The family of this 313-nucleotide RNA from Bergeyella zoohelcum is "Bacterial RNase P class A". About the family: Ribonuclease P (RNase P) is a ubiquitous endoribonuclease, found in archaea, bacteria and eukarya as well as chloroplasts and mitochondria.
RNA sequence: UAGGAAAAUGAGUCUGCUGAUCAUUCUUAAUUUAGAAUGGUAGGAAAGUCUGGACACCAUAGAGCAGCAUAAUGGGUAACGCCCAUCCGUAGUAAUACGAGGACCAGUGCAACAGAAAGAAUGUACAGUUCGGCUGUAGUGAAAUCAGGUAAACUCUAUGUGGUGCAAUGCUAAGUAUAUCGGCAACUAAGGGUGGCUCGUCCAAUGCCGAGGGGUAAGCAGCUAUAAUUUUACUGCAAAGUAAAAUACAGAUAAAUAGCAGACACUUCUCCACAGAGAAGUACAGAAUCCGGCUUAUAAGUUUUCCUACUUU
Numbered sequence: 001u002a003g004g005a006a007a008a009u010g011a012g013u014c015u016g017c018u019g020a021u022c023a024u025u026c027u028u029a030a031u032u033u034a035g036a037a038u039g040g041u042a043g044g045a046a047a048g049u050c051u052g053g054a055c056a057c058c059a060u061a062g063a064g065c066a067g068c069a070u071a072a073u074g075g076g077u078a079a080c081g082c083c084c085a086u087c088c089g090u091a092g093u094a095a096u097a098c099g100a101g102g103a104c105c106a107g108u109g110c111a112a113c114a115g116a117a118a119g120a121a122u123g124u125a126c127a128g129u130u131c132g133g134c135u136g137u138a139g140u141g142a143a144a145u146c147a148g149g150u151a152a153a154c155u156c157u158a159u160g161u162g163g164u165g166c167a168a169u170g171c172u173a174a175g176u177a178u179a180u181c182g183g184c185a186a187c188u189a190a191g192g193g194u195g196g197c198u199c200g201u202c203c204a205a206u207g208c209c210g211a212g213g214g215g216u217a218a219g220c221a222g223c224u225a226u227a228a229u230u231u232u233a234c235u236g237c238a239a240a241g242u243a244a245a246a247u248a249c250a251g252a253u254a255a256a257u258a259g260c261a262g263a264c265a266c267u268u269c270u271c272c273a274c275a276g277a278g279a280a281g282u283a284c285a286g287a288a289u290c291c292g293g294c295u296u297a298u299a300a301g302u303u304u305u306c307c308u309a310c311u312u313u
Stems, first nucleotide, its partner, number of pairs: 001309009011298001012264007020041008046296003050293005055165004062199004067161005072086005087101001088099004102156002107154002109150002124138006169221004180211005191203004228247008